[Rfam]
RNA sequence: UGGGCAGGGGGGUCUUCGCUGCGCGAAGCCUGCCCAGCAAGGUUGUGCGUGAUGCGUGUCAGGCGCGACCAGUGGUUGUCGCUCGGGGGUGAUCGCCG
Number, nucleotide and partner (000 for none) at each position: 001u036002g035003g034004g033005c032006a031007g030008g029009g000010g000011g000012g000013u000014c028015u027016u026017c025018g024019c023020u000021g000022c000023g019024c018025g017026a016027a015028g014029c008030c007031u006032g005033c004034c003035c002036a001037g000038c000039a000040a000041g070042g069043u068044u067045g066046u065047g064048c063049g000050u000051g000052a000053u000054g000055c000056g000057u000058g000059u000060c000061a000062g000063g048064c047065g046066c045067g044068a043069c042070c041071a000072g000073u000074g000075g000076u000077u000078g000079u000080c000081g000082c000083u000084c000085g000086g000087g000088g000089g000090u000091g000092a000093u000094c000095g000096c000097c000098g000
A member of the RNA family "che1 RNA" from Streptomyces sp. 3214.6, 98 nucleotides long. A search with the family's covariance model found it, with a score of 90 bits. Lineage of the source: Bacteria > Bacillati > Kitasatosporales > Streptomycetaceae > Streptomyces.